[Rfam]
RNA sequence: UAACGAAAAUGGCAAACUUAUUGAAAAGUAAGGACGCAAAGCCUAUGGAUCUAAGGUCAAUUAACUAGGAUAGCCGGGUUGCCGAA
Dot-bracket structure: ...........((...((((((....))))))...))..((((..((((((....((......))...)))..)))))))......
Shown here is an 86-nucleotide RNA from Gracilibacillus kekensis, a member of the family "c-di-GMP-I riboswitch aptamer".
Lineage of the source: Bacteria > Bacillati > Bacilli > Caryophanales > Gracilibacillus.